Rfam assigns this 95-nucleotide RNA to the family "PhotoRC-II RNA".

RNA sequence: UCACCAAUCACUCCCCUCCAACCAAGACCUAUAGGGAGUAUAAAUUACGUCUUUCAUAUCCGAAAGUGAGGGAUUUUCGGAAAUAAGUUUUCGCA
Numbered sequence: 001u002c003a004c005c006a007a008u009c010a011c012u013c014c015c016c017u018c019c020a021a022c023c024a025a026g027a028c029c030u031a032u033a034g035g036g037a038g039u040a041u042a043a044a045u046u047a048c049g050u051c052u053u054u055c056a057u058a059u060c061c062g063a064a065a066g067u068g069a070g071g072g073a074u075u076u077u078c079g080g081a082a083a084u085a086a087g088u089u090u091u092c093g094c095a
Base pairs, nucleotide, nucleotide: 011038012037013036014035015034017033024053025052026051027050028049059081060080061079062078063077064076065075
By type it is a cis-regulatory element.